[Rfam]
RNA sequence: AUGCCUUACGGAUGCUCAGGUCCGCCGCAUCUCCUGGGGUUCGUAGGCUCGGCCAGCCGGGGCGGCUCGUUGCCUCCUCAACAUUCCGCUUCCGGCUGGCCACCUC
Numbered sequence: 001a002u003g004c005c006u007u008a009c010g011g012a013u014g015c016u017c018a019g020g021u022c023c024g025c026c027g028c029a030u031c032u033c034c035u036g037g038g039g040u041u042c043g044u045a046g047g048c049u050c051g052g053c054c055a056g057c058c059g060g061g062g063c064g065g066c067u068c069g070u071u072g073c074c075u076c077c078u079c080a081a082c083a084u085u086c087c088g089c090u091u092c093c094g095g096c097u098g099g100c101c102a103c104c105u106c
Stems, first nucleotide, its partner, number of pairs: 003049001005047006015038006051101011
RNA: EcpR1
Organism: Microvirga subterranea